RNA sequence: CCUUUCCGGAGGGAGAGCGGCCUGGGGCGGCGGCGGCGGUGCGUGUGGUGCUGCGAUGUGCGUGGAAGGCGCGUGGAAGGCGCGCGUGGGUUGAGUGAGUGGGCGUGCGAGUGUGGUGGGUCCACGUGGGGCGUGCAAGGCGAGCGUAUGUGCGCCGUCCCUGAGCCCCUCCCCCCGUCUACACCUUGAUCUUAUUUGAUCGGGUUGUGACCCAGCCCCGCCGGGCCGGCCCGAGAUGAAAAGCUUCCUCCUGCGAAGCCCCCUCCGUGGGGCGCUGUGCGGCGAGGCCCGCGGGCGGCGGCAGCACCGCGGCCCCGGCUCUGGUCUGACGGGGCCCGGCGCUCAGAAGUGAUGAAUUGAUCAGAUAGACGAGGCCGGGCCCGUCCCGCGCCGCUGAUUAUCGAGGCGAUUCUGAUCUGA
Dot-bracket structure: ......................................................(.(.((((((.....)))))..................(.(((......))).)..(((.......(.(.(.((............)).).).)..))).........).).)...........................(((..((((.(((.(.(((.((...)).))))))).)))).....)))......................((...(((.(((..((.(.(..((((.......).)))..).).))))))))))..(((((((....))).))))....((((......((((((.............(((..((......))..)))..............))))))...)))).
A member of the RNA family "Small Cajal body-specific RNA 2" from Vulpes vulpes, 420 nucleotides long. NCBI's taxonomy places the organism under Eukaryota, Opisthokonta, Vertebrata, Sarcopterygii, Vulpes. The family has 20 seed sequences and 612 matches in Rfam 15.1. Pairs were carried over by alignment from the consensus structure, which is taken from published work. The match comes from Rfam's covariance-model search (308 bits). For this family Rfam cites "Guide RNAs with 5' caps and novel box C/D snoRNA-like domains for modification of snRNAs in metazoa" (Tycowski et al., Curr Biol, 2004).